RT-5 RNA: a 102-nucleotide sequence.
Rfam classes the family as a small RNA.
RNA sequence: UUGCACCUGUGAAGGGCUCAGCAGGGGACAUAAGUCGAUUUUGCAGGUAAUCGUCCCCUGUACAGUCCCGUAUCCGAUACCAAUCGGAUUUUAACAUCUCCU
Numbered sequence: 001u002u003g004c005a006c007c008u009g010u011g012a013a014g015g016g017c018u019c020a021g022c023a024g025g026g027g028a029c030a031u032a033a034g035u036c037g038a039u040u041u042u043g044c045a046g047g048u049a050a051u052c053g054u055c056c057c058c059u060g061u062a063c064a065g066u067c068c069c070g071u072a073u074c075c076g077a078u079a080c081c082a083a084u085c086g087g088a089u090u091u092u093a094a095c096a097u098c099u100c101c102u
Stems, first nucleotide, its partner, number of pairs: 005048007014068002017065002021061008037052004073088006